[Rfam]
RNA sequence: CCCUUGGACUGUUAUACAAACCAAAGUAGCUUAGGCAAAAUGGAACAGGUUGAACAGGGAA
Numbered sequence: 001c002c003c004u005u006g007g008a009c010u011g012u013u014a015u016a017c018a019a020a021c022c023a024a025a026g027u028a029g030c031u032u033a034g035g036c037a038a039a040a041u042g043g044a045a046c047a048g049g050u051u052g053a054a055c056a057g058g059g060a061a
Stems, first nucleotide, its partner, number of pairs: 001059004009048005021043003029036002